[Rfam]
RNA sequence: AUCGGGGCACACGACUGGCGCAGGUGGGUGACCACCAGGGAGUGACACCGGUCGCGCAUCGCCCGCCUGGGUGCGCGAC
Dot-bracket structure: ..(.((...(((..(([[[[...((((....))))..))..)))...)).)....(((((...]]]]..))))).....
RNA: ZMP/ZTP riboswitch aptamer (pfl RNA motif)